[Rfam]
RNA: SAM riboswitch aptamer (S box leader)
Organism: Syntrophotalea acetylenica
RNA sequence: UCUUUAUCAAGAGUGGUGGAGGGAAGGGCCCUGCGAAACCACAGCAACCGAUCCGACAGUACGGAUGCCAGGUGCUAAUUCCUGCCCCUGAUAAAGGGGAACGAUGAGGA
Numbered sequence: 001u002c003u004u005u006a007u008c009a010a011g012a013g014u015g016g017u018g019g020a021g022g023g024a025a026g027g028g029c030c031c032u033g034c035g036a037a038a039c040c041a042c043a044g045c046a047a048c049c050g051a052u053c054c055g056a057c058a059g060u061a062c063g064g065a066u067g068c069c070a071g072g073u074g075c076u077a078a079u080u081c082c083u084g085c086c087c088c089u090g091a092u093a094a095a096g097g098g099g100a101a102c103g104a105u106g107a108g109g110a
Stems, first nucleotide, its partner, number of pairs: 001110008013042005021031003026083003043076004048072002050068001085099005
Dot-bracket structure: ((((((((....(((((...(((..[[[)))......)))))((((.(((.................)..))))))....]]].(((((.....)))))...))))))))